Annotation
The family of this 100-nucleotide sequence from Niallia taxi is "Purine riboswitch aptamer". Pairs were carried over by alignment from the consensus structure, which is taken from published work. It scores 73 bits against the family's covariance model.
[Rfam]
RNA sequence: UUAUUUUAAUUAUGUUAUUUUCGUAUAUCCUUAAUAAUUGGUUUAAGGGUCUCUACUUAGAAACCGUAAAUUUCUAGCUACGAAAAAACAGGCUUUGUAU
Number, nucleotide and partner (000 for none) at each position: 001u000002u000003a000004u000005u000006u000007u000008a000009a000010u000011u000012a000013u000014g000015u000016u000017a000018u086019u085020u084021u083022c082023g081024u080025a079026u000027a000028u000029c048030c047031u046032u045033a044034a043035u000036a000037a000038u000039u000040g000041g000042u000043u034044u033045a032046a031047g030048g029049g000050u000051c000052u000053c000054u000055a000056c000057u077058u076059a075060g074061a073062a072063a071064c000065c000066g000067u000068a000069a000070a000071u063072u062073u061074c060075u059076a058077g057078c000079u025080a024081c023082g022083a021084a020085a019086a018087a000088a000089c000090a000091g000092g000093c000094u000095u000096u000097g000098u000099a000100u000